Description: Rfam assigns this 69-nucleotide sequence from Actinophytocola algeriensis to the family "ASpks TB sRNA". The literature on the family includes a 2009 paper in Mol Microbiol by Arnvig and Young, "Identification of small RNAs in Mycobacterium tuberculosis". The family's RNA type in Rfam is antisense RNA.

RNA sequence: CUUGACCGAACCGAGCCACAGCGGCUGCUCGCGGUCCCGGCCGUACGUGGCCAUCAGGGCCUGCGCCUC
Numbered sequence: 001c002u003u004g005a006c007c008g009a010a011c012c013g014a015g016c017c018a019c020a021g022c023g024g025c026u027g028c029u030c031g032c033g034g035u036c037c038c039g040g041c042c043g044u045a046c047g048u049g050g051c052c053a054u055c056a057g058g059g060c061c062u063g064c065g066c067c068u069c
Stems, first nucleotide, its partner, number of pairs: 014026004028065001030063001032059001039052001041050003
Dot-bracket structure: .............((((.....)))).(.(.(......(.(((....))).)......)...).)....